RNA sequence: AGUGUUACCAGUUAGGUGAGGCUCCUAUGCAAAUAUAGGCCAUUGCCCAAAAACAUCGAAAGAUGCCAAUGGGUAGAACAGGGAUUGUCGGAUUAAGGCUUUCCAUAAGAUGGCUAAAAGUAGAAUGAUACUUUUUACGUUGCAUAGUGCUAAAACUCGACGAGUGGUAGAUUU
Numbered sequence: 001a002g003u004g005u006u007a008c009c010a011g012u013u014a015g016g017u018g019a020g021g022c023u024c025c026u027a028u029g030c031a032a033a034u035a036u037a038g039g040c041c042a043u044u045g046c047c048c049a050a051a052a053a054c055a056u057c058g059a060a061a062g063a064u065g066c067c068a069a070u071g072g073g074u075a076g077a078a079c080a081g082g083g084a085u086u087g088u089c090g091g092a093u094u095a096a097g098g099c100u101u102u103c104c105a106u107a108a109g110a111u112g113g114c115u116a117a118a119a120g121u122a123g124a125a126u127g128a129u130a131c132u133u134u135u136u137a138c139g140u141u142g143c144a145u146a147g148u149g150c151u152a153a154a155a156c157u158c159g160a161c162g163a164g165u166g167g168u169a170g171a172u173u174u
Base pairs, nucleotide, nucleotide: 005170006169007168008167009166010165011161012160013096015157016156017155020151021150022149025147026146027145028144029143030142031141032140039114040113041112042111043110045074046073047072048071049070054065055064056063057062082104083103084102087099088098089097116135117134118133119132120131121130